[Rfam]
RNA sequence: GUUGCUUCUUAUGGUGGACUCCUGUAAAUUUUCAUUGGUUGGGGAUGUUCAAGUUUCUGAUGCAUAGAUAGAAUAUCCAGUAUCAAACAGCACCGUGCAUUUUGCUUGCAUAUGUAACCUGUCUCCUGUUACACGU
Numbered sequence: 001g002u003u004g005c006u007u008c009u010u011a012u013g014g015u016g017g018a019c020u021c022c023u024g025u026a027a028a029u030u031u032u033c034a035u036u037g038g039u040u041g042g043g044g045a046u047g048u049u050c051a052a053g054u055u056u057c058u059g060a061u062g063c064a065u066a067g068a069u070a071g072a073a074u075a076u077c078c079a080g081u082a083u084c085a086a087a088c089a090g091c092a093c094c095g096u097g098c099a100u101u102u103u104g105c106u107u108g109c110a111u112a113u114g115u116a117a118c119c120u121g122u123c124u125c126c127u128g129u130u131a132c133a134c135g136u
Stems, first nucleotide, its partner, number of pairs: 003064003007060002015051005020045004078128003082124001090115002095111003
The record is a 136-nucleotide RNA from Malus baccata, which matches "small nucleolar RNA snoR137" in Rfam. Lineage of the source: Eukaryota > Magnoliopsida > eudicotyledons > Gunneridae > Malus. A search with the family's covariance model found it, with a score of 66 bits. The family's RNA type in Rfam is H/ACA-box small nucleolar RNA. Rfam links the family to the GO terms nucleolus and RNA processing. The family's consensus secondary structure was predicted with RNAalifold. For this family Rfam cites "Mining small RNA sequencing data: a new approach to identify small nucleolar RNAs in Arabidopsis" (Chen and Wu, Nucleic Acids Res, 2009).